Plastid-ycf3 group II-D1 intron: a 47-nucleotide RNA sequence from Ziziphus jujuba. The family has 385 seed sequences and 1,488 matches in Rfam 15.1. Rfam links the family to the GO term Group II intron splicing. The match comes from Rfam's covariance-model search (64 bits). NCBI's taxonomy places the organism under Eukaryota, Embryophyta, Euphyllophyta, Rosales, Ziziphus jujuba. From the family's description: Plastid rpl16 is a non-coding RNA (ncRNA) recognised in plastids. It was recognised in and intronic region of a ribosome rpl16 gene. A reference for the family is Richter et al. (2023), "Retrograde signaling in plants: A critical review focusing on the GUN pathway and beyond", Plant Commun.
RNA sequence: AGCCCUUCUAUCGUGUAUCCCCGAUUAAUGCAGCAUCAGAUGCUUCA
Numbered sequence: 001a002g003c004c005c006u007u008c009u010a011u012c013g014u015g016u017a018u019c020c021c022c023g024a025u026u027a028a029u030g031c032a033g034c035a036u037c038a039g040a041u042g043c044u045u046c047a
Stems, first nucleotide, its partner, number of pairs: 010025004032044003